Record summary: The record is a 78-nucleotide RNA from Naja naja, which matches "mir-130 microRNA precursor family" in Rfam. It scores 61 bits against the family's covariance model. The base pairs follow the family's consensus structure, which was predicted with PFOLD. Rfam links the family to the GO terms RISC complex and miRNA-mediated post-transcriptional gene silencing. For this family Rfam cites "Identification of tissue-specific microRNAs from mouse" (Lagos-Quintana et al., Curr Biol, 2002).

RNA sequence: UGCUGGCCUGUGCCCUUUUUCUGUUGUACUACUGGAACUCUCAUUAGCAGUGCAAUAUUAAAAGGGCAUUGGCUGGCA
Dot-bracket structure: (((.((((.(.((((((((..(((((((((..................)))))))))..)))))))).).)))).)))